[Rfam]
RNA: c-di-AMP riboswitch aptamer (ydaO/yuaA leader)
RNA sequence: GACUGGAUCCCGCGCAAACUCACCCGUGUACGGCAGGAGCGGGGGACCCACAGGUAGAACCGCCUGUUCCGGUCUCCGGAACGGCUUGGGGUCAAGUCGCGUCCCCACGCGACCGGGCAUCUCCAGCCCGCACCCGACAGCUCACCUCGCAGGCGCCGGAGAGGAAUU
Numbered sequence: 001g002a003c004u005g006g007a008u009c010c011c012g013c014g015c016a017a018a019c020u021c022a023c024c025c026g027u028g029u030a031c032g033g034c035a036g037g038a039g040c041g042g043g044g045g046a047c048c049c050a051c052a053g054g055u056a057g058a059a060c061c062g063c064c065u066g067u068u069c070c071g072g073u074c075u076c077c078g079g080a081a082c083g084g085c086u087u088g089g090g091g092u093c094a095a096g097u098c099g100c101g102u103c104c105c106c107a108c109g110c111g112a113c114c115g116g117g118c119a120u121c122u123c124c125a126g127c128c129c130g131c132a133c134c135c136g137a138c139a140g141c142u143c144a145c146c147u148c149g150c151a152g153g154c155g156c157c158g159g160a161g162a163g164g165a166a167u168u
Stems, first nucleotide, its partner, number of pairs: 003153002008038003039150006049088002089135003097112004115129004